[Rfam]
RNA sequence: GGCCUCCUUGUGCUUACCACAGGCUGUGUUCCUACACUGACUGUAUGGAAACAGAGUAAACCUACCCUGUGUACUCCUCAGCCUAGGCCACCGUGCCUGGUCUGUAUUGUGAAUGGGGAAAAAAAG
Dot-bracket structure: .(..(((............(((...((((....))))...)))...)))..)............((((((........(((.((((((......)))))).)))........))))))........
RNA: Small nucleolar RNA SNORA51
Organism: Rattus norvegicus